Shown here is a 90-nucleotide sequence from Carnobacterium antarcticum, a member of the family "RNA anti-toxin A". For this family Rfam cites "Abundance of type I toxin-antitoxin systems in bacteria: searches for new candidates and discovery of novel families" (Fozo et al., Nucleic Acids Res, 2010). The family has 16 seed sequences and 190 matches in Rfam 15.1. Pairs were carried over by alignment from the consensus structure, which was predicted with RNAalifold.
RNA sequence: CAAUAAUAAUAGAAAAGAGGACAUGCUGGAUACAUGCCCUCAAAAGUAGAACCGUUUAAGACGGUAGCAAAUUUACAGCGUUAAAAAUAA
Numbered sequence: 001c002a003a004u005a006a007u008a009a010u011a012g013a014a015a016a017g018a019g020g021a022c023a024u025g026c027u028g029g030a031u032a033c034a035u036g037c038c039c040u041c042a043a044a045a046g047u048a049g050a051a052c053c054g055u056u057u058a059a060g061a062c063g064g065u066a067g068c069a070a071a072u073u074u075a076c077a078g079c080g081u082u083a084a085a086a087a088u089a090a
Stems, first nucleotide, its partner, number of pairs: 022036004051065006
Dot-bracket structure: .....................((((.......))))..............((((((...)))))).........................